The record is a 222-nucleotide sequence from Oscillatoriales cyanobacterium M59_W2019_021, which matches "HNH endonuclease-associated RNA and ORF (HEARO) RNA" in Rfam.
A reference for the family is Weinberg et al. (2009), "Exceptional structured noncoding RNAs revealed by bacterial metagenome analysis", Nature.
Lineage of the source: Bacteria > Bacillati > Cyanobacteriota > Cyanophyceae > Oscillatoriales.
It is annotated as a non-coding RNA gene.
The base pairs follow the family's consensus structure, which is taken from published work.
RNA sequence: GUCAGCACCCCCGGCUGAAGCACGGGGGCUUCUAGCUCCAACUUCAGGUAGCUGACCAGCCUAAGCCUUAAUUGGCUACGUUCAGAGCAAGCGUUAAAGUUCCUACCUUGGGAUGCGUCGCUAAUCCCAAGCUCUAGAACCGAAUCGUUAAACAUCUUUAAGGGGUUAAGGAAGUGCGAUUGGGAUAGUACCGACUCCGAACAUUGGCGAAGCAAACAUUAC
Numbered sequence: 001g002u003c004a005g006c007a008c009c010c011c012c013g014g015c016u017g018a019a020g021c022a023c024g025g026g027g028g029c030u031u032c033u034a035g036c037u038c039c040a041a042c043u044u045c046a047g048g049u050a051g052c053u054g055a056c057c058a059g060c061c062u063a064a065g066c067c068u069u070a071a072u073u074g075g076c077u078a079c080g081u082u083c084a085g086a087g088c089a090a091g092c093g094u095u096a097a098a099g100u101u102c103c104u105a106c107c108u109u110g111g112g113a114u115g116c117g118u119c120g121c122u123a124a125u126c127c128c129a130a131g132c133u134c135u136a137g138a139a140c141c142g143a144a145u146c147g148u149u150a151a152a153c154a155u156c157u158u159u160a161a162g163g164g165g166u167u168a169a170g171g172a173a174g175u176g177c178g179a180u181u182g183g184g185a186u187a188g189u190a191c192c193g194a195c196u197c198c199g200a201a202c203a204u205u206g207g208c209g210a211a212g213c214a215a216a217c218a219u220u221a222c
Base pairs, nucleotide, nucleotide: 001056002055003054004053005052006051007049009028010027011025012024014021015020059208060207061206063204064077065076066075067074080202081201082200083199085197093195094194095193101138102137107131108130109129110128111127112126113125114124118215120213121212122211140184141183143181144180145179146178147177148176152175153174155172156171157170158169159168160167161166